[Rfam]
RNA sequence: CUCGUCUGAGGGGACGCGAGGAUCGGCCUGGUCGCCGCCGCUUGGGCCAGCGCGUCGGCUCGGGCCUUGACAAGCCGCCCGAGGGGAGGCUCUCCGGAGCCUAGAGCUGGACCCUAGCGAUCGCCGCCUGCCCUUCCUGCCUGCGUCCGGCGAGGGGUUUCCCGCCUUGCACCUCCCACCUCUGGACGUGCCUCCGCUCCUCUCGUCGCGUGCGGAGGGAGCCAGCGCUUAGGCCGGAGCGAGCCUGGGGGGGCUGCCGGCCGUGAAGGCUUCGCGGGGACCGAUUCGCCGGA
Numbered sequence: 001c002u003c004g005u006c007u008g009a010g011g012g013g014a015c016g017c018g019a020g021g022a023u024c025g026g027c028c029u030g031g032u033c034g035c036c037g038c039c040g041c042u043u044g045g046g047c048c049a050g051c052g053c054g055u056c057g058g059c060u061c062g063g064g065c066c067u068u069g070a071c072a073a074g075c076c077g078c079c080c081g082a083g084g085g086g087a088g089g090c091u092c093u094c095c096g097g098a099g100c101c102u103a104g105a106g107c108u109g110g111a112c113c114c115u116a117g118c119g120a121u122c123g124c125c126g127c128c129u130g131c132c133c134u135u136c137c138u139g140c141c142u143g144c145g146u147c148c149g150g151c152g153a154g155g156g157g158u159u160u161c162c163c164g165c166c167u168u169g170c171a172c173c174u175c176c177c178a179c180c181u182c183u184g185g186a187c188g189u190g191c192c193u194c195c196g197c198u199c200c201u202c203u204c205g206u207c208g209c210g211u212g213c214g215g216a217g218g219g220a221g222c223c224a225g226c227g228c229u230u231a232g233g234c235c236g237g238a239g240c241g242a243g244c245c246u247g248g249g250g251g252g253g254c255u256g257c258c259g260g261c262c263g264u265g266a267a268g269g270c271u272u273c274g275c276g277g278g279g280a281c282c283g284a285u286u287c288g289c290c291g292g293a
Base pairs, nucleotide, nucleotide: 001013002012003011016035017034018033019029020028021027037065038064039063086160087159088158090157134154135153136152138150189224190223192221193220194219195218201216202215203214235260237258239257240256241255
This 293-nucleotide RNA sequence from Vulpes vulpes belongs to the Rfam family "HIF-1 alpha IRES". About the family: This family represents the hypoxia-inducible factor 1-alpha internal ribosome entry site. It scores 206 bits against the family's covariance model.